A member of the RNA family "mir-9256 microRNA precursor family" from Pipistrellus kuhlii, 67 nucleotides long. Pairs were carried over by alignment from the consensus structure, which was predicted with RNAalifold. Its family is annotated with miRNA-mediated post-transcriptional gene silencing and RISC complex in the Gene Ontology.
[Rfam]
RNA sequence: UUAUACACUGAGUGGCCGGAUUAUUAUGCAUCUAGAGAGCAUAAUAAUCCGGCCACUCAGUGUAUUU
Numbered sequence: 001u002u003a004u005a006c007a008c009u010g011a012g013u014g015g016c017c018g019g020a021u022u023a024u025u026a027u028g029c030a031u032c033u034a035g036a037g038a039g040c041a042u043a044a045u046a047a048u049c050c051g052g053c054c055a056c057u058c059a060g061u062g063u064a065u066u067u
Stems, first nucleotide, its partner, number of pairs: 004064014019049010